[Rfam]
RNA sequence: ACACAGAAGGGAGGUGGUCCGAGGAAUGAGUUCUUUUCGGAUGAGUGAGGUGGCUGCCCGCUAAGGCAGCCCGGUCCGCCGACAGCUGCCGGCGAAUCCACUGCAGCCACCCGACCCGCAGGCUCCCGGUGUCAUCCGCCGGGGCUCCUCACGGAGCAGCAGGCCUGCGGGUCGCUGCAC
Numbered sequence: 001a002c003a004c005a006g007a008a009g010g011g012a013g014g015u016g017g018u019c020c021g022a023g024g025a026a027u028g029a030g031u032u033c034u035u036u037u038c039g040g041a042u043g044a045g046u047g048a049g050g051u052g053g054c055u056g057c058c059c060g061c062u063a064a065g066g067c068a069g070c071c072c073g074g075u076c077c078g079c080c081g082a083c084a085g086c087u088g089c090c091g092g093c094g095a096a097u098c099c100a101c102u103g104c105a106g107c108c109a110c111c112c113g114a115c116c117c118g119c120a121g122g123c124u125c126c127c128g129g130u131g132u133c134a135u136c137c138g139c140c141g142g143g144g145c146u147c148c149u150c151a152c153g154g155a156g157c158a159g160c161a162g163g164c165c166u167g168c169g170g171g172u173c174g175c176u177g178c179a180c
Stems, first nucleotide, its partner, number of pairs: 013058006059094004065090003069086002072081003112174013125143006
A member of the RNA family "Actinobacteria sRNA Ms_IGR-5" from Nocardioides sp. S5, 180 nucleotides long. It scores 100 bits against the family's covariance model. NCBI's taxonomy places the organism under Bacteria, Bacillati, Actinomycetes, Propionibacteriales, Nocardioides. It is annotated as a small RNA. On this family, see Li et al., RNA 2013: "Identification of small RNAs in Mycobacterium smegmatis using heterologous Hfq".